[Rfam]
RNA sequence: CGGUUACUGCUCGAUGCGUGAUAGACCCUUUUCCAGUGGCCUAUACCAUUCCUGAGGGGGCUGGCUCUGUCGUGGCCCUGGCCUCGUUAACUGGCACCCACCUGACUUUUCAGGUCUCCGGGAACUCUCGUCUCCACGGUUGCUGCGGUUUCCGU
Numbered sequence: 001c002g003g004u005u006a007c008u009g010c011u012c013g014a015u016g017c018g019u020g021a022u023a024g025a026c027c028c029u030u031u032u033c034c035a036g037u038g039g040c041c042u043a044u045a046c047c048a049u050u051c052c053u054g055a056g057g058g059g060g061c062u063g064g065c066u067c068u069g070u071c072g073u074g075g076c077c078c079u080g081g082c083c084u085c086g087u088u089a090a091c092u093g094g095c096a097c098c099c100a101c102c103u104g105a106c107u108u109u110u111c112a113g114g115u116c117u118c119c120g121g122g123a124a125c126u127c128u129c130g131u132c133u134c135c136a137c138g139g140u141u142g143c144u145g146c147g148g149u150u151u152c153c154g155u
Stems, first nucleotide, its partner, number of pairs: 002153002006149005012142004017138003031123004036118001038116004056099003060095005069088001071086002074083003

6S / SsrS RNA: a 155-nucleotide sequence from Thioclava indica.
Rfam classes the family as a non-coding RNA gene.
It scores 55 bits against the family's covariance model.
From the family's description: E. coli 6S RNA was the first non coding RNA to be sequenced, but its function was unknown until recently. It consists of 184 nucleotides that fold into an extended hairpin structure with a large single-stranded internal bulge. The 6S RNA specifically associates with RNA polymerase holoenzyme containing the sigma70 specificity factor. This interaction represses expression from a sigma70-dependent promoter during stationary phase. 6S RNA homologs have recently been identified in most bacterial genomes. Many Gram-positive species have two copies of 6S RNA. In Bacillus subtilis, both copies appear to interact with RNA polymerase holoenzyme containing the housekeeping sigma factor and be expressed during different stages of growth. In many proteobacteria, 6S RNA may be processed from a transcript encoding homologs of the E. coli YgfA protein which is a putative 5-formyltetrahydrofolate cycloligase activity.
The base pairs follow the family's consensus structure, which is taken from published work.